mir-146 microRNA precursor family: a 97-nucleotide RNA sequence from Scyliorhinus torazame. The family has 33 seed sequences and 1,617 matches in Rfam 15.1. The match comes from Rfam's covariance-model search (61 bits). For this family Rfam cites "Identification of tissue-specific microRNAs from mouse" (Lagos-Quintana et al., Curr Biol, 2002). Its family is annotated with RISC complex and miRNA-mediated post-transcriptional gene silencing in the Gene Ontology.
RNA sequence: UUGGCAGCUCCCAGCUAUGAGAACUGAAUUCCAUGGGCUGGUUGCACACUUUAUUUCUCAGUCCAUAGUAGACAGUUCUCCAGCUUGGCUGCUUCGU
Numbered sequence: 001u002u003g004g005c006a007g008c009u010c011c012c013a014g015c016u017a018u019g020a021g022a023a024c025u026g027a028a029u030u031c032c033a034u035g036g037g038c039u040g041g042u043u044g045c046a047c048a049c050u051u052u053a054u055u056u057c058u059c060a061g062u063c064c065a066u067a068g069u070a071g072a073c074a075g076u077u078c079u080c081c082a083g084c085u086u087g088g089c090u091g092c093u094u095c096g097u
Stems, first nucleotide, its partner, number of pairs: 010088002013085003020079007035064006